RNA sequence: GGCCUCUUGGUGCUUACCACAGGCUCUGUUCUUCACAUUGCCUGUAGAGAAAGAGGGAGAAGAAGCUUCAUCCACAUACGACAGCCCAGACACAGGGUCUGGUCUGUAUUGUGAAUGGGGAUCAUGA
Dot-bracket structure: ..((((((...........(((....(((.....)))....)))......))))))..............((((.......(((.((((((.....)))))).))).........))))........
Rfam assigns this 127-nucleotide sequence from Sciurus vulgaris to the family "Small nucleolar RNA SNORA51". Rfam's curators write: ACA51 is a member of the H/ACA class of snoRNA that guide the sites of modification of uridines to pseudouridines. The match comes from Rfam's covariance-model search (75 bits). Rfam links the family to the GO terms RNA processing and nucleolus.